[Rfam]
RNA sequence: UUUUCCAAUUCGCUGAAUUCCACAUGAAGAUCAUGAGAAACGGGGGAACCAAUAAACACUGGGGUGAAUCUCAAACAAUUGAGUAGGGCAACUCUUACUGUCCGAAUCCGUCAGCUAACCUCGUAAGCGUUGUGAGAGGGAGA
Numbered sequence: 001u002u003u004u005c006c007a008a009u010u011c012g013c014u015g016a017a018u019u020c021c022a023c024a025u026g027a028a029g030a031u032c033a034u035g036a037g038a039a040a041c042g043g044g045g046g047a048a049c050c051a052a053u054a055a056a057c058a059c060u061g062g063g064g065u066g067a068a069u070c071u072c073a074a075a076c077a078a079u080u081g082a083g084u085a086g087g088g089c090a091a092c093u094c095u096u097a098c099u100g101u102c103c104g105a106a107u108c109c110g111u112c113a114g115c116u117a118a119c120c121u122c123g124u125a126a127g128c129g130u131u132g133u134g135a136g137a138g139g140g141a142g143a
Stems, first nucleotide, its partner, number of pairs: 011129004018039003040124006050061002062109003070083004086103004
Dot-bracket structure: ..........((((...(((................)))((((((....((........))(((.....((((......))))..((((..........))))...))).........)))))).))))..............
RNA: c-di-AMP riboswitch aptamer (ydaO/yuaA leader)